[Rfam]
RNA sequence: CUGAUACCCCACGGGUGCCCACGGGAAGUGGGCUGAGAGUGGCGCUGAUACCGCGCCUGCACCGUUUGAACCUGUCUGGUUAGCACCAGCGAAGGAAGAGAGGAGCAGCCAUGAC
Numbered sequence: 001c002u003g004a005u006a007c008c009c010c011a012c013g014g015g016u017g018c019c020c021a022c023g024g025g026a027a028g029u030g031g032g033c034u035g036a037g038a039g040u041g042g043c044g045c046u047g048a049u050a051c052c053g054c055g056c057c058u059g060c061a062c063c064g065u066u067u068g069a070a071c072c073u074g075u076c077u078g079g080u081u082a083g084c085a086c087c088a089g090c091g092a093a094g095g096a097a098g099a100g101a102g103g104a105g106c107a108g109c110c111a112u113g114a115c
Base pairs, nucleotide, nucleotide: 007102009100011065012064013063014062016059017033018032019031020030021029041057042056043055044054071095072094073093076089077088078087079086